[Rfam]
Notes: This 85-nucleotide RNA sequence from Eragrostis curvula belongs to the Rfam family "Small nucleolar RNA SNORD34". Rfam describes the family as follows. snoRNA U34 is found in intron 5 of the ribosomal protein L13a gene in humans. The base pairs follow the family's consensus structure, which was predicted with PFOLD. The family's RNA type in Rfam is C/D-box small nucleolar RNA. The family has 14 seed sequences and 1,319 matches in Rfam 15.1. NCBI's taxonomy places the organism under Eukaryota, Petrosaviidae, Poales, Chloridoideae, Eragrostis.
RNA sequence: AUCGCCUAUGAUGAGUUGCACAAUUAUUAGCCUACAUUGUUUGACAGGUAUUCUUGUGAUAAUAACCGCAACAGCUGAGGCAUAU
Numbered sequence: 001a002u003c004g005c006c007u008a009u010g011a012u013g014a015g016u017u018g019c020a021c022a023a024u025u026a027u028u029a030g031c032c033u034a035c036a037u038u039g040u041u042u043g044a045c046a047g048g049u050a051u052u053c054u055u056g057u058g059a060u061a062a063u064a065a066c067c068g069c070a071a072c073a074g075c076u077g078a079g080g081c082a083u084a085u
Base pairs, nucleotide, nucleotide: 001085002084004081005080006079